[Rfam]
RNA: BsrC
RNA sequence: UCUCGUUUAAACGACGCAUUCCCAAACCUCUAAUACGUCCUUGUAACCCUUUAGUUACGCCAGUUUUGAAUAAACUUCUUCAAAAGAAG
Numbered sequence: 001u002c003u004c005g006u007u008u009a010a011a012c013g014a015c016g017c018a019u020u021c022c023c024a025a026a027c028c029u030c031u032a033a034u035a036c037g038u039c040c041u042u043g044u045a046a047c048c049c050u051u052u053a054g055u056u057a058c059g060c061c062a063g064u065u066u067u068g069a070a071u072a073a074a075c076u077u078c079u080u081c082a083a084a085a086g087a088a089g
Stems, first nucleotide, its partner, number of pairs: 036068002040063002042059006